[Rfam]
RNA sequence: GUACCAUGUGCAGGAUCGCGAAAACGUUCUGGUCGGCAAUAAUUGAGUAAUUUGUCACCGGGGCAUUUUCGACUAGCCUUCCGCGAUUC
Numbered sequence: 001g002u003a004c005c006a007u008g009u010g011c012a013g014g015a016u017c018g019c020g021a022a023a024a025c026g027u028u029c030u031g032g033u034c035g036g037c038a039a040u041a042a043u044u045g046a047g048u049a050a051u052u053u054g055u056c057a058c059c060g061g062g063g064c065a066u067u068u069u070c071g072a073c074u075a076g077c078c079u080u081c082c083g084c085g086a087u088u089c
Stems, first nucleotide, its partner, number of pairs: 003087001005085001007083001012079003016075001018073001019071006026064008035056004
RNA: mir-5316 microRNA precursor family